A member of the RNA family "Plastid-rpl20 3UTR RNA" from Corallorhiza bentleyi, 83 nucleotides long.
Rfam classes the family as a cis-regulatory element.
[Rfam]
RNA sequence: GAUUUCCCGGAGAAUGAACUCCGGGAAGAUAUAAGAAAAAUAGAUUUAGAUUUGAGUAGUAAGAAUAAACGAACAUCUUUCAA
Numbered sequence: 001g002a003u004u005u006c007c008c009g010g011a012g013a014a015u016g017a018a019c020u021c022c023g024g025g026a027a028g029a030u031a032u033a034a035g036a037a038a039a040a041u042a043g044a045u046u047u048a049g050a051u052u053u054g055a056g057u058a059g060u061a062a063g064a065a066u067a068a069a070c071g072a073a074c075a076u077c078u079u080u081c082a083a
Base pairs, nucleotide, nucleotide: 004027005026006025007024008023009022010021011020012019067080068079069078